This 383-nucleotide sequence from Neurospora tetrasperma belongs to the Rfam family "Nuclear RNase P". NCBI's taxonomy places the organism under Eukaryota, Opisthokonta, Sordariomycetes, Sordariomycetidae, Neurospora tetrasperma.
RNA sequence: UCCUCUUCAACGCUGCGUUUCUAUGCACCAACGGAGAGUUCUGCCUCGGCAUUCCUUUCAUCAUGGCAUAUGAGAAAUUCGGAGAAAUCGCUUCACCUUCAGCCACCCCUCUGAUCGCGUCAGGGUCGGCUCACUCCGGUGGCCUGGCUUUGUCAAGAUUGAGGAGCUGCUGCCGGCAACGGUCUCACGCGAUACUGCGUGUGUAAUUGGCAUCAGAAAAGCAGGCGGCUAUCCUAGGCGGGCAAGCUGACGGUGUAGUCGCCCUUUGGGAGAGCCAUUACGAAGCUUGUGGGUAGAAUCACUUGAGUGCAAUACGCAGCGUGCGGUGUCUGUCUUCUUCUUGGUAGACCUGUACAAUCCGAUUCCGAUUACUCUGUUGAGGA
Numbered sequence: 001u002c003c004u005c006u007u008c009a010a011c012g013c014u015g016c017g018u019u020u021c022u023a024u025g026c027a028c029c030a031a032c033g034g035a036g037a038g039u040u041c042u043g044c045c046u047c048g049g050c051a052u053u054c055c056u057u058u059c060a061u062c063a064u065g066g067c068a069u070a071u072g073a074g075a076a077a078u079u080c081g082g083a084g085a086a087a088u089c090g091c092u093u094c095a096c097c098u099u100c101a102g103c104c105a106c107c108c109c110u111c112u113g114a115u116c117g118c119g120u121c122a123g124g125g126u127c128g129g130c131u132c133a134c135u136c137c138g139g140u141g142g143c144c145u146g147g148c149u150u151u152g153u154c155a156a157g158a159u160u161g162a163g164g165a166g167c168u169g170c171u172g173c174c175g176g177c178a179a180c181g182g183u184c185u186c187a188c189g190c191g192a193u194a195c196u197g198c199g200u201g202u203g204u205a206a207u208u209g210g211c212a213u214c215a216g217a218a219a220a221g222c223a224g225g226c227g228g229c230u231a232u233c234c235u236a237g238g239c240g241g242g243c244a245a246g247c248u249g250a251c252g253g254u255g256u257a258g259u260c261g262c263c264c265u266u267u268g269g270g271a272g273a274g275c276c277a278u279u280a281c282g283a284a285g286c287u288u289g290u291g292g293g294u295a296g297a298a299u300c301a302c303u304u305g306a307g308u309g310c311a312a313u314a315c316g317c318a319g320c321g322u323g324c325g326g327u328g329u330c331u332g333u334c335u336u337c338u339u340c341u342u343g344g345u346a347g348a349c350c351u352g353u354a355c356a357a358u359c360c361g362a363u364u365c366c367g368a369u370u371a372c373u374c375u376g377u378u379g380a381g382g383a
Stems, first nucleotide, its partner, number of pairs: 001383004008376002012320007022070004034059005080367005090286004172183004186201005206279001208277004223265003321355006
Description: A search with the family's covariance model found it, with a score of 43 bits. Pairs were carried over by alignment from the consensus structure, which is taken from published work. The literature on the family includes a 1998 paper in Annu Rev Biochem by Frank and Pace, "Ribonuclease P: unity and diversity in a tRNA processing ribozyme". Rfam 15.1 lists 3,848 matches to the family in 1,862 species.